[Rfam]
RNA sequence: UCGUGCCCAACAGUCGGUUUUCACCGUGAUCUGAGAGCAAUCCAAAAAUGCUUUUCUGAGAUCAUCGUGAAAGCUAGUUGUUGGUCUACG
Numbered sequence: 001u002c003g004u005g006c007c008c009a010a011c012a013g014u015c016g017g018u019u020u021u022c023a024c025c026g027u028g029a030u031c032u033g034a035g036a037g038c039a040a041u042c043c044a045a046a047a048a049u050g051c052u053u054u055u056c057u058g059a060g061a062u063c064a065u066c067g068u069g070a071a072a073g074c075u076a077g078u079u080g081u082u083g084g085u086c087u088a089c090g
Base pairs, nucleotide, nucleotide: 009082010081011080012079016075017074018073019072020071021070022069023068024067027064028063029062030061031060032059034057035056036055037051038050

A member of the RNA family "mir-81 microRNA precursor family" from Caenorhabditis elegans, 90 nucleotides long. Clan: mir-81 clan.